[Rfam]
RNA sequence: UGGAAAUGAUGAAAUGGAGAUACUUGGGUGUUGAAUGUUGUAUGACUGAGAAUUUUUAAUAUAUUAAUUCUAGAUUAGUAUUUUAUGGUAGUUAAUUAUUUGUGUGUGUGUGUGUGUGUGUUUUUGGCUAUGGAAAGGGGGCACUGAAUGGUGAUGCUGAUAUUGGAGUGCAUCUGAGGCUGUUGUAGAAAUAAUAGGGGUGUUGAUUUACAACAUUGCCAAUGAUUAUAACCCCAAAGCAGCUCACCUAACUAGCCCAGCACCCUAAAAUCUCUAACAGGUUCAUUAAACAUGGUCCUGUGAUCUGAUCCAA
Numbered sequence: 001u002g003g004a005a006a007u008g009a010u011g012a013a014a015u016g017g018a019g020a021u022a023c024u025u026g027g028g029u030g031u032u033g034a035a036u037g038u039u040g041u042a043u044g045a046c047u048g049a050g051a052a053u054u055u056u057u058a059a060u061a062u063a064u065u066a067a068u069u070c071u072a073g074a075u076u077a078g079u080a081u082u083u084u085a086u087g088g089u090a091g092u093u094a095a096u097u098a099u100u101u102g103u104g105u106g107u108g109u110g111u112g113u114g115u116g117u118g119u120g121u122u123u124u125u126g127g128c129u130a131u132g133g134a135a136a137g138g139g140g141g142c143a144c145u146g147a148a149u150g151g152u153g154a155u156g157c158u159g160a161u162a163u164u165g166g167a168g169u170g171c172a173u174c175u176g177a178g179g180c181u182g183u184u185g186u187a188g189a190a191a192u193a194a195u196a197g198g199g200g201u202g203u204u205g206a207u208u209u210a211c212a213a214c215a216u217u218g219c220c221a222a223u224g225a226u227u228a229u230a231a232c233c234c235c236a237a238a239g240c241a242g243c244u245c246a247c248c249u250a251a252c253u254a255g256c257c258c259a260g261c262a263c264c265c266u267a268a269a270a271u272c273u274c275u276a277a278c279a280g281g282u283u284c285a286u287u288a289a290a291c292a293u294g295g296u297c298c299u300g301u302g303a304u305c306u307g308a309u310c311c312a313a
Stems, first nucleotide, its partner, number of pairs: 001312004181215008190204004195200001
The record is a 313-nucleotide RNA from Spermophilus dauricus, which matches "Small Cajal body-specific RNA 7" in Rfam. On this family, see Darzacq et al., EMBO J 2002: "Cajal body-specific small nuclear RNAs: a novel class of 2'-O-methylation and pseudouridylation guide RNAs". Pairs were carried over by alignment from the consensus structure. Gene Ontology terms of the family: nucleolus and RNA processing. Lineage of the source: Eukaryota > Deuterostomia > Craniata > Euteleostomi > Spermophilus.